[Rfam]
RNA sequence: UGAGAAGACACUGGAGGCAGCGGUUCAUCGAUCUUUUCCUGAUGAAUUUUUUCUUUUACACGAAAACACGAAUCGAUCGAUAAACCUCUGCAUCCAGUGCUUCCCUU
Numbered sequence: 001u002g003a004g005a006a007g008a009c010a011c012u013g014g015a016g017g018c019a020g021c022g023g024u025u026c027a028u029c030g031a032u033c034u035u036u037u038c039c040u041g042a043u044g045a046a047u048u049u050u051u052u053c054u055u056u057u058a059c060a061c062g063a064a065a066a067c068a069c070g071a072a073u074c075g076a077u078c079g080a081u082a083a084a085c086c087u088c089u090g091c092a093u094c095c096a097g098u099g100c101u102u103c104c105c106u107u
Stems, first nucleotide, its partner, number of pairs: 013095003018090003022086004027081007036072003

This 107-nucleotide sequence from Salix dunnii belongs to the Rfam family "MIR162_1 microRNA precursor family". The family's consensus secondary structure was predicted with RNAalifold. The literature on the family includes a 2002 paper in Genes Dev by Reinhart et al., "MicroRNAs in plants". Rfam links the family to the GO terms RISC complex and miRNA-mediated post-transcriptional gene silencing.